[Rfam]
RNA: HNH endonuclease-associated RNA and ORF (HEARO) RNA
RNA sequence: GUCAGCAUCCCGCUCUAAAGAGACGGGGCUUCGUGCCUCUCCUUUAGUAGGGGCGUUUCGCGAAACGCCCCUACCCGUUUCGCGAAACGCCCCUACCCGUUUCGCGAAACGCCCCUACCCAACCUAAGCCCUUUGAGGGCUACGUCAUCGGUAAGCGUUAAAGCUCCUACCUGGGGAUACGUCGCCAGUCCCCUGCUCUAGAACCAAACCGUUAAACCGUCAUACGAGGGGUAAGACAGUGCGGUUUGGAAAGUACCGACCGAUAACAUUGGCGAGCUUCCAAAC
Numbered sequence: 001g002u003c004a005g006c007a008u009c010c011c012g013c014u015c016u017a018a019a020g021a022g023a024c025g026g027g028g029c030u031u032c033g034u035g036c037c038u039c040u041c042c043u044u045u046a047g048u049a050g051g052g053g054c055g056u057u058u059c060g061c062g063a064a065a066c067g068c069c070c071c072u073a074c075c076c077g078u079u080u081c082g083c084g085a086a087a088c089g090c091c092c093c094u095a096c097c098c099g100u101u102u103c104g105c106g107a108a109a110c111g112c113c114c115c116u117a118c119c120c121a122a123c124c125u126a127a128g129c130c131c132u133u134u135g136a137g138g139g140c141u142a143c144g145u146c147a148u149c150g151g152u153a154a155g156c157g158u159u160a161a162a163g164c165u166c167c168u169a170c171c172u173g174g175g176g177a178u179a180c181g182u183c184g185c186c187a188g189u190c191c192c193c194u195g196c197u198c199u200a201g202a203a204c205c206a207a208a209c210c211g212u213u214a215a216a217c218c219g220u221c222a223u224a225c226g227a228g229g230g231g232u233a234a235g236a237c238a239g240u241g242c243g244g245u246u247u248g249g250a251a252a253g254u255a256c257c258g259a260c261c262g263a264u265a266a267c268a269u270u271g272g273c274g275a276g277c278u279u280c281c282a283a284a285c
Stems, first nucleotide, its partner, number of pairs: 001119001004116002009028002011025002014021002032106004123272002126269001127141005144267002147264006165202002171195001173193006181281001184278001186276001204249009216240002219237003223233003